RNA sequence: GAAGCCUGCCAGACCGCCGCUGGUGCAAUCUGGGAAACCAGGCACUGGAGGAACGUCCGGACUGCACAGGACAGCGUAGGAGGUAAUACCUCUCCACCGUGAGGUGAGGAUCAGAGCAACAGAGACGAGUCGCUUUUGGGUAACUCAAAAGCGGGUGAAACGGGCAAUCUCUACGCGCAGCAAUACCAAGUAGGCCAGCGUUGAUGUAGCUCCGCAGAGCUGGCGGGUAGGUAGCACCGAGCCGGGUGGGCGACCCCCGGCCCAGAUUAAUGGCGGUCACACCGGGUUUGCCGCAAGGCACAUCCGGCGCACAGAAUCCGGCUUAUCGGCGGGCUUCACAC
Numbered sequence: 001g002a003a004g005c006c007u008g009c010c011a012g013a014c015c016g017c018c019g020c021u022g023g024u025g026c027a028a029u030c031u032g033g034g035a036a037a038c039c040a041g042g043c044a045c046u047g048g049a050g051g052a053a054c055g056u057c058c059g060g061a062c063u064g065c066a067c068a069g070g071a072c073a074g075c076g077u078a079g080g081a082g083g084u085a086a087u088a089c090c091u092c093u094c095c096a097c098c099g100u101g102a103g104g105u106g107a108g109g110a111u112c113a114g115a116g117c118a119a120c121a122g123a124g125a126c127g128a129g130u131c132g133c134u135u136u137u138g139g140g141u142a143a144c145u146c147a148a149a150a151g152c153g154g155g156u157g158a159a160a161c162g163g164g165c166a167a168u169c170u171c172u173a174c175g176c177g178c179a180g181c182a183a184u185a186c187c188a189a190g191u192a193g194g195c196c197a198g199c200g201u202u203g204a205u206g207u208a209g210c211u212c213c214g215c216a217g218a219g220c221u222g223g224c225g226g227g228u229a230g231g232u233a234g235c236a237c238c239g240a241g242c243c244g245g246g247u248g249g250g251c252g253a254c255c256c257c258c259g260g261c262c263c264a265g266a267u268u269a270a271u272g273g274c275g276g277u278c279a280c281a282c283c284g285g286g287u288u289u290g291c292c293g294c295a296a297g298g299c300a301c302a303u304c305c306g307g308c309g310c311a312c313a314g315a316a317u318c319c320g321g322c323u324u325a326u327c328g329g330c331g332g333g334c335u336u337c338a339c340a341c
Stems, first nucleotide, its partner, number of pairs: 001337010011326001012278007020048007053324001055322001057321005062180004069212002072209001074176005079093005094108001095106004109171002114169002116165002130154011184233004194224006205216003241261006248255002
The family of this 341-nucleotide RNA sequence from Polaromonas sp. JS666 is "Bacterial RNase P class A". The organism belongs to Polaromonas, within Bacteria. Rfam's curators put it in the seed alignment. The base pairs follow the family's consensus structure, which is taken from published work.